[Rfam]
RNA sequence: GCUGCCGCUCACACCCGCUGCCAGUGCCCAGUGCUGGUCCUGAUCUCUUGGUGCUGUCAGUGGGUGCGAGCAGCUGCUG
Number, nucleotide and partner (000 for none) at each position: 001g000002c000003u000004g074005c073006c000007g071008c070009u069010c068011a000012c066013a065014c064015c063016c062017g061018c060019u059020g058021c000022c056023a055024g054025u053026g052027c051028c050029c000030a000031g000032u000033g000034c000035u000036g000037g000038u000039c000040c000041u000042g000043a000044u000045c000046u000047c000048u000049u000050g028051g027052u026053g025054c024055u023056g022057u000058c020059a019060g018061u017062g016063g015064g014065u013066g012067c000068g010069a009070g008071c007072a000073g005074c004075u000076g000077c000078u000079g000
The record is a 79-nucleotide RNA from Eptesicus fuscus, which matches "mir-9198 microRNA precursor family" in Rfam. Rfam 15.1 lists 64 matches to the family in 7 species. Rfam links the family to the GO terms RISC complex and miRNA-mediated post-transcriptional gene silencing.